[Rfam]
Nucleotides: 139
Stems, first nucleotide, its partner, number of pairs: 004069003008064002011062001024056002027053004035047003081132003089123001091121003096116001098114004
Number, partner (000 for none) and nucleotide at each position: 001000c002000a003000u004069g005068g006067a007000a008064g009063c010000u011062g012000a013000a014000g015000a016000a017000c018000c019000a020000a021000c022000c023000a024056u025055g026000c027053a028052g029051a030050c031000a032000g033000a034000u035047g036046a037045g038000a039000a040000a041000a042000c043000a044000c045037c046036u047035u048000u049000u050030g051029u052028c053027u054000c055025c056024a057000g058000a059000c060000a061000g062011c063009g064008c065000a066000a067006u068005c069004c070000u071000a072000c073000a074000c075000a076000a077000a078000c079000a080000u081132g082131g083130a084000a085000a086000u087000c088000u089123u090000u091121g092120u093119c094000u095000g096116a097000a098114u099113u100112a101111g102000g103000a104000c105000a106000g107000c108000u109000g110000g111101c112100u113099g114098a115000g116096u117000g118000u119093g120092g121091u122000c123089a124000u125000u126000c127000c128000c129000c130083u131082c132081c133000a134000u135000a136000u137000a138000a139000c